RNA sequence: UCCCGCUUUUCCUCCCUGAGCGGGUGCCUUUGCGUGUCACAGCAAAAAAGGCUUCCAGGCCCGGCUGACCUAGCGUCAUCCGGGCAUUUUUUU
Numbered sequence: 001u002c003c004c005g006c007u008u009u010u011c012c013u014c015c016c017u018g019a020g021c022g023g024g025u026g027c028c029u030u031u032g033c034g035u036g037u038c039a040c041a042g043c044a045a046a047a048a049a050g051g052c053u054u055c056c057a058g059g060c061c062c063g064g065c066u067g068a069c070c071u072a073g074c075g076u077c078a079u080c081c082g083g084g085c086a087u088u089u090u091u092u093u
Base pairs, nucleotide, nucleotide: 002024003023004022005021006020007019026052027051028050029049030048031047059085060084061083062082063081064080066078067077068076069075
Dot-bracket structure: .((((((...........)))))).((((((...............))))))......((((((.((((.....)))).))))))........
A member of the RNA family "Burkholderia RNA 7 (anti-hemB)" from Polaromonas sp. A23, 93 nucleotides long. This RNA motif was identified by computational search in b-proteobacteria Burkholderia. Co-purified with Hfq, expression confirmed by Northern blot. A search with the family's covariance model found it, with a score of 55 bits. Its family is annotated with protein binding and bacterial biofilm matrix in the Gene Ontology. For this family Rfam cites "Identification of 22 candidate structured RNAs in bacteria using the CMfinder comparative genomics pipeline" (Weinberg et al., Nucleic Acids Res, 2007). By type it is a small RNA.